[Rfam]
RNA: MIR1520 microRNA precursor family
RNA sequence: UUCUUAUUGGAUGAUGAUUGUCACAUGUCAUGUUUUGAUUGGUAAAUGAAAACAACAAUGCAUUUCAUCUUUCAUGGAGUUAACAUUCAAUAAGAACGUGACACGUGACAGUCAUCAUCA
Numbered sequence: 001u002u003c004u005u006a007u008u009g010g011a012u013g014a015u016g017a018u019u020g021u022c023a024c025a026u027g028u029c030a031u032g033u034u035u036u037g038a039u040u041g042g043u044a045a046a047u048g049a050a051a052a053c054a055a056c057a058a059u060g061c062a063u064u065u066c067a068u069c070u071u072u073c074a075u076g077g078a079g080u081u082a083a084c085a086u087u088c089a090a091u092a093a094g095a096a097c098g099u100g101a102c103a104c105g106u107g108a109c110a111g112u113c114a115u116c117a118u119c120a
Stems, first nucleotide, its partner, number of pairs: 020109004026103001029100003033096004038091005